[Rfam]
Rfam assigns this 155-nucleotide RNA from Lachancea kluyveri to the family "U4 spliceosomal RNA". Rfam links the family to the GO terms U4 snRNP and spliceosomal tri-snRNP complex assembly. The source organism's lineage runs through Eukaryota, Opisthokonta, Fungi, Lachancea and Lachancea kluyveri. It is annotated as a spliceosomal small nuclear RNA. Its Rfam clan is "U4 clan". The sequence is in the family's curated seed alignment.
RNA sequence: AUCCUUAUGCACGGGAAAUACGCAUAUCAGUGAGGAUUCGUCCGAGAUUGUGUUAUUGCUGGUUGAAAUUUUUAACCUGACCGCUCCUCAUAGUUUAAUGUGUCUUUUUUACACUAUAUGGCUAUGCAGGGAAUUUUUGGAAUUAUCCUCUGAUG
Numbered sequence: 001a002u003c004c005u006u007a008u009g010c011a012c013g014g015g016a017a018a019u020a021c022g023c024a025u026a027u028c029a030g031u032g033a034g035g036a037u038u039c040g041u042c043c044g045a046g047a048u049u050g051u052g053u054u055a056u057u058g059c060u061g062g063u064u065g066a067a068a069u070u071u072u073u074a075a076c077c078u079g080a081c082c083g084c085u086c087c088u089c090a091u092a093g094u095u096u097a098a099u100g101u102g103u104c105u106u107u108u109u110u111a112c113a114c115u116a117u118a119u120g121g122c123u124a125u126g127c128a129g130g131g132a133a134u135u136u137u138u139g140g141a142a143u144u145a146u147c148c149u150c151u152g153a154u155g
Stems, first nucleotide, its partner, number of pairs: 020053005026048003034043003085131003089126007096118002144155004